[Rfam]
RNA sequence: GAACAAAUCCCUUUACAACGGAUCGUGAGGCACGUACCUGCCUCUGAAAGGAUUAGUAA
Numbered sequence: 001g002a003a004c005a006a007a008u009c010c011c012u013u014u015a016c017a018a019c020g021g022a023u024c025g026u027g028a029g030g031c032a033c034g035u036a037c038c039u040g041c042c043u044c045u046g047a048a049a050g051g052a053u054u055a056g057u058a059a
Base pairs, nucleotide, nucleotide: 009051010050012048013047014046015045027044028043029042030041031040032039
RNA: msiK RNA
Organism: Bifidobacterium longum